[Rfam]
RNA: Bacterial RNase P class A
RNA sequence: CGAGUAUCGGAUGUGGUCGCUGCCAGUAUAAGGGAAACCGGCUGGGAGAGGAAAGUCCGGGCUUCACAGAGCAGGAUGCCUGCUAACGGCAGGUUGCGGUGACGCACAGGAAAGUGUAACAGAGAGUAGACCGCCGGUUUCGACCGGUAAGGGUGAAAGGGCAGUGUAAGAGACUACCGCACAACUGGUAACAGCUGUGGCAUUAUAAACCCCAUCUGAAGAAAGACCAAACAGGAAACAUAUGGCUGCUCGUCAGUUUCCGGGUAGGUUGAUUGAGACGUAUGGCAACAUACGCCCUAGAUAGAUGACCACUUGAUACAUAACCCGGCUUAUUACGAUACUCGAUUG
Numbered sequence: 001c002g003a004g005u006a007u008c009g010g011a012u013g014u015g016g017u018c019g020c021u022g023c024c025a026g027u028a029u030a031a032g033g034g035a036a037a038c039c040g041g042c043u044g045g046g047a048g049a050g051g052a053a054a055g056u057c058c059g060g061g062c063u064u065c066a067c068a069g070a071g072c073a074g075g076a077u078g079c080c081u082g083c084u085a086a087c088g089g090c091a092g093g094u095u096g097c098g099g100u101g102a103c104g105c106a107c108a109g110g111a112a113a114g115u116g117u118a119a120c121a122g123a124g125a126g127u128a129g130a131c132c133g134c135c136g137g138u139u140u141c142g143a144c145c146g147g148u149a150a151g152g153g154u155g156a157a158a159g160g161g162c163a164g165u166g167u168a169a170g171a172g173a174c175u176a177c178c179g180c181a182c183a184a185c186u187g188g189u190a191a192c193a194g195c196u197g198u199g200g201c202a203u204u205a206u207a208a209a210c211c212c213c214a215u216c217u218g219a220a221g222a223a224a225g226a227c228c229a230a231a232c233a234g235g236a237a238a239c240a241u242a243u244g245g246c247u248g249c250u251c252g253u254c255a256g257u258u259u260c261c262g263g264g265u266a267g268g269u270u271g272a273u274u275g276a277g278a279c280g281u282a283u284g285g286c287a288a289c290a291u292a293c294g295c296c297c298u299a300g301a302u303a304g305a306u307g308a309c310c311a312c313u314u315g316a317u318a319c320a321u322a323a324c325c326c327g328g329c330u331u332a333u334u335a336c337g338a339u340a341c342u343c344g345a346u347u348g
Stems, first nucleotide, its partner, number of pairs: 001344009011333001013312006020048002023045005053331003057328005062221004069251004074217005079093005094108001095106004109212002114210002116206003131152002133148006160178002163175003179201001180199004185194003225270004234261006243255004277296001279294006